RNA sequence: GGGGCUGGCCGAAAGGAUCAGGUCCCACCACAGCGGGGAGUUACCCC
Numbered sequence: 001g002g003g004g005c006u007g008g009c010c011g012a013a014a015g016g017a018u019c020a021g022g023u024c025c026c027a028c029c030a031c032a033g034c035g036g037g038g039a040g041u042u043a044c045c046c047c
Base pairs, nucleotide, nucleotide: 001026002025003024004023005022006021007018009016010015
DUF3800-XI RNA: a 47-nucleotide RNA sequence.
Rfam's curators put it in the seed alignment.
Pairs were carried over by alignment from the consensus structure, which is taken from published work.